[Rfam]
RNA sequence: UCGUGCUGGUGAUGAUUAAAGAGCUAGCAAUGGUGAAUACGAUGAAUUUGUUCGCGUGCCGCUGGGUGCGCAGCAGUCGUGAUAUGCAUUCUUCCCAGCGCAGCAGUCGUGAUAUGCAUUCUUACGCAGUUCAUAUGAGGCACGC
Numbered sequence: 001u002c003g004u005g006c007u008g009g010u011g012a013u014g015a016u017u018a019a020a021g022a023g024c025u026a027g028c029a030a031u032g033g034u035g036a037a038u039a040c041g042a043u044g045a046a047u048u049u050g051u052u053c054g055c056g057u058g059c060c061g062c063u064g065g066g067u068g069c070g071c072a073g074c075a076g077u078c079g080u081g082a083u084a085u086g087c088a089u090u091c092u093u094c095c096c097a098g099c100g101c102a103g104c105a106g107u108c109g110u111g112a113u114a115u116g117c118a119u120u121c122u123u124a125c126g127c128a129g130u131u132c133a134u135a136u137g138a139g140g141c142a143c144g145c
Stems, first nucleotide, its partner, number of pairs: 002144006
The family of this 145-nucleotide sequence from Oryza glumipatula is "Small nucleolar RNA Z188". It scores 97 bits against the family's covariance model. The family's RNA type in Rfam is C/D-box small nucleolar RNA. The family's consensus secondary structure was predicted with PFOLD.